[Rfam]
RNA sequence: CCCGUUUUGCGGGAGAUCGGCGCCAUAGAACGCUUUCGCUUGACCUGUUGGCAACACAGUCGGGAUACUUGCGCCUUUCUGUCCGCCCGGGCCGCGGCAUGGUAGCAGAACCGCCCCGCGCCCGGUGGCACGGCCCCGCGCCCGCGAACCGUUUCCCAACCCGUUUUCAGGGGUAGACGCAUGGACCUG
Number, nucleotide and partner (000 for none) at each position: 001c000002c000003c000004g000005u000006u000007u000008u000009g000010c063011g000012g061013g060014a000015g000016a000017u000018c000019g000020g000021c000022g052023c051024c050025a049026u000027a000028g000029a000030a000031c000032g000033c000034u000035u000036u000037c000038g000039c000040u000041u000042g000043a000044c000045c000046u000047g000048u000049u025050g024051g023052c022053a000054a000055c000056a000057c000058a000059g000060u013061c012062g000063g010064g000065a000066u000067a000068c000069u000070u000071g000072c000073g000074c000075c000076u000077u000078u000079c000080u000081g000082u000083c000084c000085g000086c000087c000088c000089g000090g000091g126092c125093c124094g123095c000096g000097g000098c000099a000100u000101g000102g000103u000104a000105g000106c000107a000108g000109a000110a000111c000112c000113g000114c000115c000116c000117c000118g000119c000120g000121c000122c000123c094124g093125g092126u091127g000128g000129c000130a000131c000132g000133g174134c173135c172136c171137c170138g000139c000140g000141c000142c000143c000144g000145c000146g000147a000148a000149c000150c000151g000152u000153u000154u000155c000156c000157c000158a000159a000160c000161c000162c000163g000164u000165u000166u000167u000168c000169a000170g137171g136172g135173g134174u133175a000176g000177a000178c000179g000180c000181a000182u000183g000184g000185a000186c000187c000188u000189g000
Rfam assigns this 189-nucleotide RNA sequence from Thioalkalivibrio sp. ALE20 to the family "aceE-II ncRNA motif". It is annotated as a cis-regulatory element. The sequence is in the family's curated seed alignment. Taxonomically the source falls in Thioalkalivibrio (Bacteria, Pseudomonadati, Pseudomonadota, Chromatiales).